[Rfam]
RNA: Small nucleolar RNA SNORA11
Organism: Microcebus murinus
RNA sequence: GGGGUGUGCUCAGAGCAGGGCGCCUGAAGAAUAGUUCCUCUGUUUACGAGCACACCCAACAGGAAUCUGGGGUCACUGUGGUGAGGGACACAAAACUUGUGGCCUCCCUAUGAACAAACGCCCUACAUGU
Numbered sequence: 001g002g003g004g005u006g007u008g009c010u011c012a013g014a015g016c017a018g019g020g021c022g023c024c025u026g027a028a029g030a031a032u033a034g035u036u037c038c039u040c041u042g043u044u045u046a047c048g049a050g051c052a053c054a055c056c057c058a059a060c061a062g063g064a065a066u067c068u069g070g071g072g073u074c075a076c077u078g079u080g081g082u083g084a085g086g087g088a089c090a091c092a093a094a095a096c097u098u099g100u101g102g103c104c105u106c107c108c109u110a111u112g113a114a115c116a117a118a119c120g121c122c123c124u125a126c127a128u129g130u
Stems, first nucleotide, its partner, number of pairs: 002057007013045008022035002070123004077116003082112002085105003089101005